[Rfam]
RNA sequence: UGAGUAGGAAAGAUGAUCGCGGAUGCCCAUAAAGCAUACGAGGAAAGUCCGAGCUCCAUAGGGCAGGGUGCUGGAUAACGUCCAGCGAGGGCGACCUUAGGGAAAGUGCCAUAGAAAUGUAAACCGCCAGCUUAUGCUGGUAAGGAUGGAACGGUGCGGUAAGAGCGCACCAGCAGUCAGGUGACUGGCUGGCUAGGUAAACCCCACCUGGAGCAAGACCGAAUAGGGAAGGGAUGAAGCUGCCCGCUGAACCUUCCGGGUUGCGUCGCUAGAGCUGUCAGGUAACUGCCAGACUAGAUAGAUGAUCAUCACCGCGUGAGCGGAACAGAACUCGGCUUAUUGAUCACUCACAGC
Dot-bracket structure: (((((.(...((((((((.((.((((.......)))).))....[[[.[[[[[((((...[[[[.((((((((((.....)))))(((((....)))).)((...(((((.............((((((((....))))))..)).......((((((.......)))))).((((((((....))))))).)..)))..)))))))))))))...((((......((((((.....(((.]]]])))...)))))).....).))).......(((.(((....))).)))...........)))))))....................]]]]]]]].)...).)))))....
Numbered sequence: 001u002g003a004g005u006a007g008g009a010a011a012g013a014u015g016a017u018c019g020c021g022g023a024u025g026c027c028c029a030u031a032a033a034g035c036a037u038a039c040g041a042g043g044a045a046a047g048u049c050c051g052a053g054c055u056c057c058a059u060a061g062g063g064c065a066g067g068g069u070g071c072u073g074g075a076u077a078a079c080g081u082c083c084a085g086c087g088a089g090g091g092c093g094a095c096c097u098u099a100g101g102g103a104a105a106g107u108g109c110c111a112u113a114g115a116a117a118u119g120u121a122a123a124c125c126g127c128c129a130g131c132u133u134a135u136g137c138u139g140g141u142a143a144g145g146a147u148g149g150a151a152c153g154g155u156g157c158g159g160u161a162a163g164a165g166c167g168c169a170c171c172a173g174c175a176g177u178c179a180g181g182u183g184a185c186u187g188g189c190u191g192g193c194u195a196g197g198u199a200a201a202c203c204c205c206a207c208c209u210g211g212a213g214c215a216a217g218a219c220c221g222a223a224u225a226g227g228g229a230a231g232g233g234a235u236g237a238a239g240c241u242g243c244c245c246g247c248u249g250a251a252c253c254u255u256c257c258g259g260g261u262u263g264c265g266u267c268g269c270u271a272g273a274g275c276u277g278u279c280a281g282g283u284a285a286c287u288g289c290c291a292g293a294c295u296a297g298a299u300a301g302a303u304g305a306u307c308a309u310c311a312c313c314g315c316g317u318g319a320g321c322g323g324a325a326c327a328g329a330a331c332u333c334g335g336c337u338u339a340u341u342g343a344u345c346a347c348u349c350a351c352a353g354c
Stems, first nucleotide, its partner, number of pairs: 001350005007344001011340001012310007020040002023037004045338003049335005054213004061245004066209005071085005086100001087098004101204002106202002108198003124145002126141006153171006173193001174191007217267003220263001227257006238248003275292003279288003

This 354-nucleotide RNA sequence from Pelosinus sp. UFO1 belongs to the Rfam family "Bacterial RNase P class A". Rfam classes the family as a ribozyme. NCBI's taxonomy places the organism under Bacteria, Bacillati, Bacillota, Sporomusaceae, Pelosinus.